[Rfam]
RNA sequence: AAAUAAAAAAACCUGCAGAAAUUAUUCUGCAGGUCCCUUUGUUUUCUUGUAGAAAACAAAAAGGCAAAGGGAGAGGAGAAACCGGAGGAGAACUUAUGGGGAAGUGUAAGUCUUCUCCGUGU
Numbered sequence: 001a002a003a004u005a006a007a008a009a010a011a012c013c014u015g016c017a018g019a020a021a022u023u024a025u026u027c028u029g030c031a032g033g034u035c036c037c038u039u040u041g042u043u044u045u046c047u048u049g050u051a052g053a054a055a056a057c058a059a060a061a062a063g064g065c066a067a068a069g070g071g072a073g074a075g076g077a078g079a080a081a082c083c084g085g086a087g088g089a090g091a092a093c094u095u096a097u098g099g100g101g102a103a104g105u106g107u108a109a110g111u112c113u114u115c116u117c118c119g120u121g122u
Base pairs, nucleotide, nucleotide: 011034012033013032014031015030016029017028018027019026035071036070037069038068039067044059045058047056048055083119084118085117086116087115088114089113090112092111093110094109095108096107

Shown here is a 122-nucleotide sequence from Ornithinibacillus bavariensis, a member of the family "ylbH leader". Its family is annotated with regulation of gene expression in the Gene Ontology. A search with the family's covariance model found it, with a score of 93 bits. From the family's description: This family is a putative regulatory RNA structure that is found upstream of the ylbH gene in B. subtilis and related low GC Gram-positive bacteria. By type it is a cis-regulatory leader.